[Rfam]
The record is a 77-nucleotide RNA sequence from Syntrophotalea acetylenica, which matches "c-di-GMP-I riboswitch aptamer" in Rfam.
RNA sequence: UUUCGCUCAGGGCAAAGUCGGAGAGAUCCGGCCACGCAAAGCCACGGGUCCAGCGCAUGGAUAGCCGGGUUGCCGAA
Numbered sequence: 001u002u003u004c005g006c007u008c009a010g011g012g013c014a015a016a017g018u019c020g021g022a023g024a025g026a027u028c029c030g031g032c033c034a035c036g037c038a039a040a041g042c043c044a045c046g047g048g049u050c051c052a053g054c055g056c057a058u059g060g061a062u063a064g065c066c067g068g069g070u071u072g073c074c075g076a077a
Base pairs, nucleotide, nucleotide: 012037013036017032018031019030020029021028022027040071041070042069043068045067046066047065048062049061050060051059052058